RNA sequence: UGCAAAUACCCUCCUUGGGUGUUUCCUCCCUAGACUUGACCGCGCCGCUGGCGCGGUUCUUUUUGAGCAGC
Numbered sequence: 001u002g003c004a005a006a007u008a009c010c011c012u013c014c015u016u017g018g019g020u021g022u023u024u025c026c027u028c029c030c031u032a033g034a035c036u037u038g039a040c041c042g043c044g045c046c047g048c049u050g051g052c053g054c055g056g057u058u059c060u061u062u063u064u065g066a067g068c069a070g071c
Stems, first nucleotide, its partner, number of pairs: 008020004040056007
RNA: Makes More Granules Regulator RNA (mmgR)